[Rfam]
A member of the RNA family "Small nucleolar RNA SNORA77" from Cyprinus carpio, 130 nucleotides long.
RNA sequence: GCAGACUCACUCUGUUUAAGACUGACACAUCCAGCCUUAGACUUUUUCUGUCUGCAACAGAAAUAGGACGAACAUUACAAACUGCCUUGCCAUUCAUUUGGGAGGUGACUGUAAAUUCUCGGACAUUUUU
Numbered sequence: 001g002c003a004g005a006c007u008c009a010c011u012c013u014g015u016u017u018a019a020g021a022c023u024g025a026c027a028c029a030u031c032c033a034g035c036c037u038u039a040g041a042c043u044u045u046u047u048c049u050g051u052c053u054g055c056a057a058c059a060g061a062a063a064u065a066g067g068a069c070g071a072a073c074a075u076u077a078c079a080a081a082c083u084g085c086c087u088u089g090c091c092a093u094u095c096a097u098u099u100g101g102g103a104g105g106u107g108a109c110u111g112u113a114a115a116u117u118c119u120c121g122g123a124c125a126u127u128u129u130u
Stems, first nucleotide, its partner, number of pairs: 001055006014042007022034003069121003074116001075114005083107005
From the family's description: ACA63 (SNORA77) is a member of the H/ACA class of snoRNAs that guide the sites of modification of uridines to pseudouridines. This snoRNA was identified by computational screening and its expression in mouse experimentally verified by Northern blot and primer extension analysis. ACA63 is proposed to guide the pseudouridylation of 18S rRNA U814. The family's consensus secondary structure was predicted with RNAalifold. A search with the family's covariance model found it, with a score of 58 bits.